[Rfam]
RNA: FGF-1 internal ribosome entry site (IRES)
RNA sequence: AACUCCAGGGGACAAGGGCAUCGCCUCCUUUACUGAAGGACACUCCCUUCAGAUGGAGAAUGGGAACUCCCUUCCUCCUGCAGUGGUCUGUCUGCAGCUAUCCUGCUAGGUCAGUGUGGAUGUGGUAGGCAUUGCAGCUGACCUGGUCUGGGGAGAAGGCGCCUCAGAGU
Numbered sequence: 001a002a003c004u005c006c007a008g009g010g011g012a013c014a015a016g017g018g019c020a021u022c023g024c025c026u027c028c029u030u031u032a033c034u035g036a037a038g039g040a041c042a043c044u045c046c047c048u049u050c051a052g053a054u055g056g057a058g059a060a061u062g063g064g065a066a067c068u069c070c071c072u073u074c075c076u077c078c079u080g081c082a083g084u085g086g087u088c089u090g091u092c093u094g095c096a097g098c099u100a101u102c103c104u105g106c107u108a109g110g111u112c113a114g115u116g117u118g119g120a121u122g123u124g125g126u127a128g129g130c131a132u133u134g135c136a137g138c139u140g141a142c143c144u145g146g147u148c149u150g151g152g153g154a155g156a157a158g159g160c161g162c163c164u165c166a167g168a169g170u
Stems, first nucleotide, its partner, number of pairs: 002170004008165004015048004024039003028035001049151003056077001058074003062071003082139001092137006099131001103118001